The record is a 178-nucleotide RNA from Pleurocapsa sp. PCC 7327, which matches "Antisense RNA which regulates isiA expression" in Rfam. For this family Rfam cites "An internal antisense RNA regulates expression of the photosynthesis gene isiA" (Duhring et al., Proc Natl Acad Sci U S A, 2006). Lineage of the source: Bacteria > Bacillati > Cyanophyceae > Pleurocapsales > Pleurocapsa.

[Rfam]
RNA sequence: GAUAGCCGAAAAUGGUAAACGGAUCGAUAGUUGGGUUAGCGACAAGACGAACUUCUCCCACAGCAGGAUCGUAAAUUCCCCCAAAGAACAUCGCUUUGGCGACAAACAAAAGCGCCGCUAUACCGAGAAAAAUGAGAUGAUGCCCUAAAAUUAAGCUUAAUUGCUUGGGAUCGCUCCA
Numbered sequence: 001g002a003u004a005g006c007c008g009a010a011a012a013u014g015g016u017a018a019a020c021g022g023a024u025c026g027a028u029a030g031u032u033g034g035g036u037u038a039g040c041g042a043c044a045a046g047a048c049g050a051a052c053u054u055c056u057c058c059c060a061c062a063g064c065a066g067g068a069u070c071g072u073a074a075a076u077u078c079c080c081c082c083a084a085a086g087a088a089c090a091u092c093g094c095u096u097u098g099g100c101g102a103c104a105a106a107c108a109a110a111a112g113c114g115c116c117g118c119u120a121u122a123c124c125g126a127g128a129a130a131a132a133u134g135a136g137a138u139g140a141u142g143c144c145c146u147a148a149a150a151u152u153a154a155g156c157u158u159a160a161u162u163g164c165u166u167g168g169g170a171u172c173g174c175u176c177c178a
Stems, first nucleotide, its partner, number of pairs: 136175001138173004144169005